Rfam assigns this 166-nucleotide RNA sequence from Colwellia sp. MT41 to the family "Group II catalytic intron D1-D4-3".
RNA sequence: UUAUUGGCUAACGAUAGGGUCUGAAGGAAGCCAUAGGAAGAUAGAUGUACACAACUAACCGUAACCUGUUUCGGCGGUAUUGGUGGGUAAGCGUCCAUAAUAGCGCGAAGCCCUAUUCUUAGUCAGACCAAUGCUGUGCUUGAGGGUGGCAUAUCUAUCGGGGAGC
Numbered sequence: 001u002u003a004u005u006g007g008c009u010a011a012c013g014a015u016a017g018g019g020u021c022u023g024a025a026g027g028a029a030g031c032c033a034u035a036g037g038a039a040g041a042u043a044g045a046u047g048u049a050c051a052c053a054a055c056u057a058a059c060c061g062u063a064a065c066c067u068g069u070u071u072c073g074g075c076g077g078u079a080u081u082g083g084u085g086g087g088u089a090a091g092c093g094u095c096c097a098u099a100a101u102a103g104c105g106c107g108a109a110g111c112c113c114u115a116u117u118c119u120u121a122g123u124c125a126g127a128c129c130a131a132u133g134c135u136g137u138g139c140u141u142g143a144g145g146g147u148g149g150c151a152u153a154u155c156u157a158u159c160g161g162g163g164a165g166c
Stems, first nucleotide, its partner, number of pairs: 001017006030166002034162001037159002042157006050148003065145003074137003078133007085113004091106004